[Rfam]
Nucleotides: 052
Stems, first nucleotide, its partner, number of pairs: 011028006032047006
Number, partner (000 for none) and nucleotide at each position: 001000c002000c003000u004000u005000g006000g007000g008000a009000c010000a011028c012027c013026u014025u015024u016023c017000c018000c019000c020000a021000a022000c023016g024015a025014a026013a027012g028011g029000c030000g031000c032047c033046c034045a035044u036043c037042u038000g039000g040000g041000a042037g043036g044035a045034u046033g047032g048000u049000c050000a051000u052000u

Annotation
serC leader: a 52-nucleotide RNA from Candidatus Methylaffinis lahnbergensis. The base pairs follow the family's consensus structure. A search with the family's covariance model found it, with a score of 63 bits. For this family Rfam cites "Evidence for a second class of S-adenosylmethionine riboswitches and other regulatory RNA motifs in alpha-proteobacteria" (Corbino et al., Genome Biol, 2005). Rfam describes the family as follows. This family is a putative regulatory RNA structure that is found upstream of the serC-serA operon in some alpha-proteobacteria. The final stem of the structure overlaps the ribosome binding site of the serC reading frame. Its family is annotated with regulation of gene expression in the Gene Ontology.